The family of this 45-nucleotide RNA from Nocardioides daedukensis is "L31-Actinobacteria ribosomal protein leader". The literature on the family includes a 2020 paper in BMC Microbiol by Eckert and Weinberg, "Discovery of 20 novel ribosomal leader candidates in bacteria and archaea". The family is grouped with related families in Rfam's "Ribosomal Protein L31 Leader clan".
[Rfam]
RNA sequence: CUGGUUCCGGUUCACGCGCCACAUCCGGUGGGGCGACCCGGCACA
Numbered sequence: 001c002u003g004g005u006u007c008c009g010g011u012u013c014a015c016g017c018g019c020c021a022c023a024u025c026c027g028g029u030g031g032g033g034c035g036a037c038c039c040g041g042c043a044c045a
Base pairs, nucleotide, nucleotide: 004044005043007041008040009039010038015035016034017033019031020030021029022028
The family's consensus secondary structure is taken from published work. The source organism's lineage runs through Bacteria, Bacillati, Actinomycetes, Nocardioidaceae and Nocardioides.